[Rfam]
This 36-nucleotide sequence from Pedobacter sp. MC2016-24 belongs to the Rfam family "DUF805b RNA".
A search with the family's covariance model found it, with a score of 39 bits.
RNA sequence: CAGGCGGUACCCGAAAAGCCAUAAACAGAGUAAGGA
Numbered sequence: 001c002a003g004g005c006g007g008u009a010c011c012c013g014a015a016a017a018g019c020c021a022u023a024a025a026c027a028g029a030g031u032a033a034g035g036a
Stems, first nucleotide, its partner, number of pairs: 003020003010035002
Pairs were carried over by alignment from the consensus structure, which is taken from published work.